Shown here is a 571-nucleotide RNA, a member of the family "ROOL RNA". Pairs were carried over by alignment from the consensus structure, which is taken from published work. Rfam's curators put it in the seed alignment.

RNA sequence: GAUUUUAAACAAUCUACUGAAUAACCAAGUGUAGAUAGGGUGACACCUUGCUUGGAUUGUAUACAUAAUUCCCGUUACGCUCUCCGUGAGAUAUUGCGGAGGGAUAAGUAAUUCUCUUUUGAGUAAUUGAAAGAGAUCAUGAAGUGUAAGAAGAUUGAGGGUGUAUGCAGUAUAGAGGUUGUGCGUAAUUAGACCAUUAUCAGACGGUGGCGGUGAUAAUAGACGCUUUCGGUGAAAGAAUAAUCUGGGGUAGGCCUUGCGUAGCAGUAAGAACUGAACCAGAAAUGCUAAAAUAAACCGUUUUGCACUUGAGGCCGAGGGAUCGGCCAAUAACACCAAAGAUAAGUACAAGUAGCCCAAAGUGUGCAGAUAAAACAUUUGGAUAUGUUUAUGCUUAAAAUAUAUUUCUGAAUGACGGGUGAAAGUUGGACGUAACCAGUCGUGCCUAGUCAUUUAAUCGCUACGGAAGUUAUAGGGUCGCUCCUUAUGGCUCAGACCGUGGUAGGCUAUCGGUCAAUAAAUUGCGUACAAUCGAAGUAGAGCGAAGGCUCAUUUAGUUGAUUGUUUAAAG
Numbered sequence: 001g002a003u004u005u006u007a008a009a010c011a012a013u014c015u016a017c018u019g020a021a022u023a024a025c026c027a028a029g030u031g032u033a034g035a036u037a038g039g040g041u042g043a044c045a046c047c048u049u050g051c052u053u054g055g056a057u058u059g060u061a062u063a064c065a066u067a068a069u070u071c072c073c074g075u076u077a078c079g080c081u082c083u084c085c086g087u088g089a090g091a092u093a094u095u096g097c098g099g100a101g102g103g104a105u106a107a108g109u110a111a112u113u114c115u116c117u118u119u120u121g122a123g124u125a126a127u128u129g130a131a132a133g134a135g136a137u138c139a140u141g142a143a144g145u146g147u148a149a150g151a152a153g154a155u156u157g158a159g160g161g162u163g164u165a166u167g168c169a170g171u172a173u174a175g176a177g178g179u180u181g182u183g184c185g186u187a188a189u190u191a192g193a194c195c196a197u198u199a200u201c202a203g204a205c206g207g208u209g210g211c212g213g214u215g216a217u218a219a220u221a222g223a224c225g226c227u228u229u230c231g232g233u234g235a236a237a238g239a240a241u242a243a244u245c246u247g248g249g250g251u252a253g254g255c256c257u258u259g260c261g262u263a264g265c266a267g268u269a270a271g272a273a274c275u276g277a278a279c280c281a282g283a284a285a286u287g288c289u290a291a292a293a294u295a296a297a298c299c300g301u302u303u304u305g306c307a308c309u310u311g312a313g314g315c316c317g318a319g320g321g322a323u324c325g326g327c328c329a330a331u332a333a334c335a336c337c338a339a340a341g342a343u344a345a346g347u348a349c350a351a352g353u354a355g356c357c358c359a360a361a362g363u364g365u366g367c368a369g370a371u372a373a374a375a376c377a378u379u380u381g382g383a384u385a386u387g388u389u390u391a392u393g394c395u396u397a398a399a400a401u402a403u404a405u406u407u408c409u410g411a412a413u414g415a416c417g418g419g420u421g422a423a424a425g426u427u428g429g430a431c432g433u434a435a436c437c438a439g440u441c442g443u444g445c446c447u448a449g450u451c452a453u454u455u456a457a458u459c460g461c462u463a464c465g466g467a468a469g470u471u472a473u474a475g476g477g478u479c480g481c482u483c484c485u486u487a488u489g490g491c492u493c494a495g496a497c498c499g500u501g502g503u504a505g506g507c508u509a510u511c512g513g514u515c516a517a518u519a520a521a522u523u524g525c526g527u528a529c530a531a532u533c534g535a536a537g538u539a540g541a542g543c544g545a546a547g548g549c550u551c552a553u554u555u556a557g558u559u560g561a562u563u564g565u566u567u568a569a570a571g
Stems, first nucleotide, its partner, number of pairs: 008567002012563001015560002018557001020555002025055005037048003057170006075111004080102001082101008113136010138146003178533001180531001188523001190521001195513001197345004206337004210301005226238004244283004249279001256271005262290004304366005314327005349425001355420004407496004429445001447509003459506001462502001466498001469492001471489007540551004